Overview:
A member of the RNA family "c-di-GMP-I-GGC riboswitch aptamer" from Pengzhenrongella sicca, 75 nucleotides long. The organism belongs to Pengzhenrongella, within Bacteria. Its Rfam clan is "c-di-GMP_I riboswitch clan". The family's consensus secondary structure is taken from published work. On this family, see Weinberg et al., Proc Natl Acad Sci U S A 2017: "Bioinformatic analysis of riboswitch structures uncovers variant classes with altered ligand specificity".
RNA sequence: AGCGACAAGAGCAAACCCGUCGGAAGGCGGGGACGCAAAGCCAGGGGCCCAGAAGGGGUAGCCCAGCUACCGAAC
Numbered sequence: 001a002g003c004g005a006c007a008a009g010a011g012c013a014a015a016c017c018c019g020u021c022g023g024a025a026g027g028c029g030g031g032g033a034c035g036c037a038a039a040g041c042c043a044g045g046g047g048c049c050c051a052g053a054a055g056g057g058g059u060a061g062c063c064c065a066g067c068u069a070c071c072g073a074a075c
Stems, first nucleotide, its partner, number of pairs: 003072002011036002016031006034061001039068003044064003047059003